This 61-nucleotide RNA sequence from Pristionchus pacificus belongs to the Rfam family "mir-8364 microRNA precursor family". The base pairs follow the family's consensus structure, which was predicted with RNAalifold. A search with the family's covariance model found it, with a score of 68 bits. Lineage of the source: Eukaryota > Bilateria > Diplogasteroidea > Neodiplogasteridae > Pristionchus. Gene Ontology terms of the family: miRNA-mediated post-transcriptional gene silencing and RISC complex.
[Rfam]
RNA sequence: UCCUCAUUUCCCACACUCUCUCACCUGUCAGAGAAGCGAGAGAGCACGAGAAAUGAAGAGA
Numbered sequence: 001u002c003c004u005c006a007u008u009u010c011c012c013a014c015a016c017u018c019u020c021u022c023a024c025c026u027g028u029c030a031g032a033g034a035a036g037c038g039a040g041a042g043a044g045c046a047c048g049a050g051a052a053a054u055g056a057a058g059a060g061a
Stems, first nucleotide, its partner, number of pairs: 001059002004056004010050001012048001016044002019041004